The record is a 175-nucleotide RNA from Enteroscipio rubneri, which matches "FMN riboswitch aptamer (RFN element)" in Rfam.
RNA sequence: AUUCUGUUUCAGGGCGAGGUGUGAUUCCUCACUGGCGGUGAACGGCCGACUGCGCGUGCAGCCACAUGAGCCGAAAGUCCGCGACCCUGCAACGGCGCGAGGUGCGCGCCUGAGCAGGCUGACUCCGGUUAGAUCCCGGGACCAACGGUUAUAGUCCGGAUGGAAGAGGCAGAGU
Numbered sequence: 001a002u003u004c005u006g007u008u009u010c011a012g013g014g015c016g017a018g019g020u021g022u023g024a025u026u027c028c029u030c031a032c033u034g035g036c037g038g039u040g041a042a043c044g045g046c047c048g049a050c051u052g053c054g055c056g057u058g059c060a061g062c063c064a065c066a067u068g069a070g071c072c073g074a075a076a077g078u079c080c081g082c083g084a085c086c087c088u089g090c091a092a093c094g095g096c097g098c099g100a101g102g103u104g105c106g107c108g109c110c111u112g113a114g115c116a117g118g119c120u121g122a123c124u125c126c127g128g129u130u131a132g133a134u135c136c137c138g139g140g141a142c143c144a145a146c147g148g149u150u151a152u153a154g155u156c157c158g159g160a161u162g163g164a165a166g167a168g169g170c171a172g173a174g175u
Base pairs, nucleotide, nucleotide: 003173004172005171006170007169008168009167010166017029018028019027031155032154033144034143035082036081037080038079077142078141086118087117088116089115090114124140125139126138127137128136146158147157148156